Rfam assigns this 73-nucleotide RNA from Alcaligenes sp. EGD-AK7 to the family "Fluoride riboswitch aptamer (crcB RNA motif)". NCBI's taxonomy places the organism under Bacteria, Pseudomonadota, Burkholderiales, Alcaligenaceae, Alcaligenes.
RNA sequence: UUUCUUCCUGGAGAUGACGUUCCUCCUUUAACCGCCGUUUCGUUCUGAAGCAGCUGAUGACGUCUACAGUGAC
Numbered sequence: 001u002u003u004c005u006u007c008c009u010g011g012a013g014a015u016g017a018c019g020u021u022c023c024u025c026c027u028u029u030a031a032c033c034g035c036c037g038u039u040u041c042g043u044u045c046u047g048a049a050g051c052a053g054c055u056g057a058u059g060a061c062g063u064c065u066a067c068a069g070u071g072a073c
Base pairs, nucleotide, nucleotide: 010026011025012024013023016064017063018062019061020060021059034054035053037051038050039049040048041047042046